[Rfam]
RNA sequence: UGCGUUGAUCCCGGAAUGGGACGCAAGUAGGCCACAUUUGGGGCCGAAGCAACGGAAA
Numbered sequence: 001u002g003c004g005u006u007g008a009u010c011c012c013g014g015a016a017u018g019g020g021a022c023g024c025a026a027g028u029a030g031g032c033c034a035c036a037u038u039u040g041g042g043g044c045c046g047a048a049g050c051a052a053c054g055g056a057a058a
Base pairs, nucleotide, nucleotide: 003054004053005052006051007050009021010020011019012018024055030045031044032043